[Rfam]
RNA: Glycine riboswitch aptamer
RNA sequence: AAGUCGAACUCUGGAGAGCGGCAUCGGCUGAUCAGGAAGUACCAGCCAGAUGCCCACCGAAGGGGCGCGCGUUGGACGUCGGAUUAUCGGCGAACAGCGUGCAAUCUCUCAGGUACCGAGGACAGAGGGGUCAUG
Numbered sequence: 001a002a003g004u005c006g007a008a009c010u011c012u013g014g015a016g017a018g019c020g021g022c023a024u025c026g027g028c029u030g031a032u033c034a035g036g037a038a039g040u041a042c043c044a045g046c047c048a049g050a051u052g053c054c055c056a057c058c059g060a061a062g063g064g065g066c067g068c069g070c071g072u073u074g075g076a077c078g079u080c081g082g083a084u085u086a087u088c089g090g091c092g093a094a095c096a097g098c099g100u101g102c103a104a105u106c107u108c109u110c111a112g113g114u115a116c117c118g119a120g121g122a123c124a125g126a127g128g129g130g131u132c133a134u135g
Stems, first nucleotide, its partner, number of pairs: 009127005020054006056114003059110002063108003069102004